This 80-nucleotide RNA from Croceicoccus mobilis belongs to the Rfam family "Makes More Granules Regulator RNA (mmgR)". Clan: suhB sRNA clan. Taxonomically the source falls in Croceicoccus (Bacteria, Pseudomonadati, Pseudomonadota, Sphingomonadales).

RNA sequence: AGAACCUGCCUUUCAGGCAUCCUCUCCCAAAACUUCAAGGGCCCGGCCGGUUCAUCCGCCGGGCCUUUUUUUUGGUUUAA
Numbered sequence: 001a002g003a004a005c006c007u008g009c010c011u012u013u014c015a016g017g018c019a020u021c022c023u024c025u026c027c028c029a030a031a032a033c034u035u036c037a038a039g040g041g042c043c044c045g046g047c048c049g050g051u052u053c054a055u056c057c058g059c060c061g062g063g064c065c066u067u068u069u070u071u072u073u074g075g076u077u078u079a080a
Stems, first nucleotide, its partner, number of pairs: 008018004040065006048058003